Alphaproteobacteria transfer-messenger RNA: a 364-nucleotide sequence from Methylobacterium sp. 4-46. Rfam's curators put it in the seed alignment. About the family: Bacterial tmRNA, also known as 10Sa RNA or SsrA, is named for its dual tRNA and mRNA-like properties. Its role is to liberate the mRNA from a stalled ribosome. To accomplish this part of the tmRNA is used as a reading frame that ends in a translation stop signal. The broken mRNA is replaced in the ribosome by the tmRNA and translation of the tmRNA leads to addition of a proteolysis tag to the incomplete protein enabling recognition by a protease. Recently a number of permuted tmRNA genes have been found encoded in two parts. tmRNAs have been identified in eubacteria and some chloroplasts but are absent from archaeal and eukaryote nuclear genomes. Taxonomically the source falls in Methylobacterium (Bacteria, Pseudomonadota, Alphaproteobacteria, Methylobacteriaceae). It is annotated as a non-coding RNA gene.

[Rfam]
RNA sequence: GGGCUUCAAAACCGGCGCGCCUGCCUCUAUAUUCGGUAGGCCGGCCGCGAGGUCGGCUAUGGCGAUAAACGUUCUUCGCAAUAAACCUAUCGGACCCGGGGGCGGUACCCGGCGCCUCCACCCAAGCCCAGCCCGUUCCGGCGGGCUGGGCUUCGGCGGGGGCGAAAUAGGAUCGACGAGGGCGUAAAGGUUGGACUUUCGCUCGGCAUGGUUCCGCCGUUAUCGGGCCAAUGCAAUAGUUGCCAACGACAACUAUGCUCCGGUGGCGGUCGCCGCGUAAGCGGUGCCCAAGACCAAACAAAGUCCUAGCGGUUAGCAUCGCAUAGGCGGGGUUCGGAGGCACCUGGCAACAGAAGCCUCCACU
Numbered sequence: 001g002g003g004c005u006u007c008a009a010a011a012c013c014g015g016c017g018c019g020c021c022u023g024c025c026u027c028u029a030u031a032u033u034c035g036g037u038a039g040g041c042c043g044g045c046c047g048c049g050a051g052g053u054c055g056g057c058u059a060u061g062g063c064g065a066u067a068a069a070c071g072u073u074c075u076u077c078g079c080a081a082u083a084a085a086c087c088u089a090u091c092g093g094a095c096c097c098g099g100g101g102g103c104g105g106u107a108c109c110c111g112g113c114g115c116c117u118c119c120a121c122c123c124a125a126g127c128c129c130a131g132c133c134c135g136u137u138c139c140g141g142c143g144g145g146c147u148g149g150g151c152u153u154c155g156g157c158g159g160g161g162g163c164g165a166a167a168u169a170g171g172a173u174c175g176a177c178g179a180g181g182g183c184g185u186a187a188a189g190g191u192u193g194g195a196c197u198u199u200c201g202c203u204c205g206g207c208a209u210g211g212u213u214c215c216g217c218c219g220u221u222a223u224c225g226g227g228c229c230a231a232u233g234c235a236a237u238a239g240u241u242g243c244c245a246a247c248g249a250c251a252a253c254u255a256u257g258c259u260c261c262g263g264u265g266g267c268g269g270u271c272g273c274c275g276c277g278u279a280a281g282c283g284g285u286g287c288c289c290a291a292g293a294c295c296a297a298a299c300a301a302a303g304u305c306c307u308a309g310c311g312g313u314u315a316g317c318a319u320c321g322c323a324u325a326g327g328c329g330g331g332g333u334u335c336g337g338a339g340g341c342a343c344c345u346g347g348c349a350a351c352a353g354a355a356g357c358c359u360c361c362a363c364u
Stems, first nucleotide, its partner, number of pairs: 040057007061203005071196004077190001086182003090179003096112005113164007204219004209230003214226002330345004336361006